Rfam assigns this 144-nucleotide RNA from Bacillus licheniformis to the family "SAM riboswitch aptamer (S box leader)".
RNA sequence: CUCUUAUCGAGAGUUGGGUGAAGGACUGGCCUAAUGAUCCCAACAGCAACCGACCGUAAUACCAUUGUGAAAUGGGGCGCGAAUCUCUGCGCCGCUAGGGCACGGUGCUAAUUCCAUCAGACUUUGAAUUCUGAGAGAUAAGAG
Number, nucleotide and partner (000 for none) at each position: 001c144002u143003c142004u141005u140006a139007u138008c137009g000010a000011g000012a000013g044014u000015u043016g041017g040018g039019u000020g000021a000022a032023g031024g030025a000026c000027u116028g115029g114030c024031c023032u022033a000034a000035u000036g000037a000038u000039c018040c017041c016042a000043a015044c013045a109046g108047c107048a106049a000050c105051c104052g101053a000054c099055c098056g000057u000058a000059a000060u000061a000062c000063c000064a000065u000066u000067g000068u000069g000070a000071a000072a000073u000074g000075g000076g000077g000078c000079g000080c000081g000082a000083a000084u000085c000086u000087c000088u000089g000090c000091g000092c000093c000094g000095c000096u000097a000098g055099g054100g000101c052102a000103c000104g051105g050106u048107g047108c046109u045110a000111a000112u000113u136114c029115c028116a027117u000118c133119a132120g131121a130122c000123u000124u000125u000126g000127a000128a000129u000130u121131c120132u119133g118134a000135g000136a113137g008138a007139u006140a005141a004142g003143a002144g001
The SAM riboswitch is found upstream of a number of genes which code for proteins involved in methionine or cysteine biosynthesis in Gram-positive bacteria. The base pairs follow the family's consensus structure, which is taken from published work. Rfam's curators put it in the seed alignment.